[Rfam]
RNA: tRNA
RNA sequence: GAUUCAAUAGUCUAGUUGGUUAGGGCACCGCAUUGUGGUUCCUCGUACAUGGGACUCACCCUCCCGUAUGCAUAGUCCAAUCCUGCGGAUACCCGUGUUCGAAUCACGGUUGGAUCA
Numbered sequence: 001g002a003u004u005c006a007a008u009a010g011u012c013u014a015g016u017u018g019g020u021u022a023g024g025g026c027a028c029c030g031c032a033u034u035g036u037g038g039u040u041c042c043u044c045g046u047a048c049a050u051g052g053g054a055c056u057c058a059c060c061c062u063c064c065c066g067u068a069u070g071c072a073u074a075g076u077c078c079a080a081u082c083c084u085g086c087g088g089a090u091a092c093c094c095g096u097g098u099u100c101g102a103a104u105c106a107c108g109g110u111u112g113g114a115u116c117a
Stems, first nucleotide, its partner, number of pairs: 001116007010026004028088005093109005